[Rfam]
RNA: Group II catalytic intron D1-D4-1
RNA sequence: GAACCUGCUUAGCGAUAAGCAGCUGUAUUAAGAGAAGUCAGCAGAAGUCAUAGUAUCAAUCUCUCGAUUGAGAAGGAC
Numbered sequence: 001g002a003a004c005c006u007g008c009u010u011a012g013c014g015a016u017a018a019g020c021a022g023c024u025g026u027a028u029u030a031a032g033a034g035a036a037g038u039c040a041g042c043a044g045a046a047g048u049c050a051u052a053g054u055a056u057c058a059a060u061c062u063c064u065c066g067a068u069u070g071a072g073a074a075g076g077a078c
Stems, first nucleotide, its partner, number of pairs: 002024001005022007038045002047078003056071006